RNA sequence: UUAAUCUGUUUGCCCUUCAAAACGCAUAAAUCUUUCGCCUUUUUACUAAAGAUUUCCGUGGAGUUGAGGCAACUCAUGAGUCUUAAUAUUUUUAUUGGCCCCCAUUGUGGGCUGU
Numbered sequence: 001u002u003a004a005u006c007u008g009u010u011u012g013c014c015c016u017u018c019a020a021a022a023c024g025c026a027u028a029a030a031u032c033u034u035u036c037g038c039c040u041u042u043u044u045a046c047u048a049a050a051g052a053u054u055u056c057c058g059u060g061g062a063g064u065u066g067a068g069g070c071a072a073c074u075c076a077u078g079a080g081u082c083u084u085a086a087u088a089u090u091u092u093u094a095u096u097g098g099c100c101c102c103c104a105u106u107g108u109g110g111g112c113u114g115u
Base pairs, nucleotide, nucleotide: 003081005079006078010069011068013066015063016062017061018060019059028055029054030053031052032051033050034049035048094115096114097113098112099111100110101109
Rfam assigns this 115-nucleotide sequence from Chionoecetes opilio to the family "U5 spliceosomal RNA".
Pairs were carried over by alignment from the consensus structure, which is taken from published work.
Rfam classes the family as a spliceosomal small nuclear RNA.
The source organism's lineage runs through Eukaryota, Opisthokonta, Ecdysozoa, Panarthropoda and Chionoecetes.